This 88-nucleotide sequence from Eubacteriaceae bacterium CHKCI004 belongs to the Rfam family "RAGATH-35 RNA". The match comes from Rfam's covariance-model search (62 bits). NCBI's taxonomy places the organism under Bacteria, Bacillati, Bacillota, Eubacteriales, Eubacteriaceae. It is annotated as a small RNA.

RNA sequence: AGCAGACAGGCGGCACGGCUUCGGUGCUUACGGAAUCGUCUGUCCAGUCUCAUCAACGGUUUUACUUUCCCUGAUCCGUUUGAGAGAU
Numbered sequence: 001a002g003c004a005g006a007c008a009g010g011c012g013g014c015a016c017g018g019c020u021u022c023g024g025u026g027c028u029u030a031c032g033g034a035a036u037c038g039u040c041u042g043u044c045c046a047g048u049c050u051c052a053u054c055a056a057c058g059g060u061u062u063u064a065c066u067u068u069c070c071c072u073g074a075u076c077c078g079u080u081u082g083a084g085a086g087a088u
Stems, first nucleotide, its partner, number of pairs: 005044007013027004